[Rfam]
RNA sequence: UUCGUCCGUCCCGUGGACGCCCCUGACCAUAAGGCCUCCGUCCGGCUACCCUGACGGCGUGCGCUCUCCACGGGAUGUCGUUUCCGCACGCAUCCUGAGGUGACGCAAAGCCGACAGCCGUCGCAUCUGAGGGAGCCCUUACAUG
Numbered sequence: 001u002u003c004g005u006c007c008g009u010c011c012c013g014u015g016g017a018c019g020c021c022c023c024u025g026a027c028c029a030u031a032a033g034g035c036c037u038c039c040g041u042c043c044g045g046c047u048a049c050c051c052u053g054a055c056g057g058c059g060u061g062c063g064c065u066c067u068c069c070a071c072g073g074g075a076u077g078u079c080g081u082u083u084c085c086g087c088a089c090g091c092a093u094c095c096u097g098a099g100g101u102g103a104c105g106c107a108a109a110g111c112c113g114a115c116a117g118c119c120g121u122c123g124c125a126u127c128u129g130a131g132g133g134a135g136c137c138c139u140u141a142c143a144u145g
Stems, first nucleotide, its partner, number of pairs: 060107004066102001068100002110124002113122003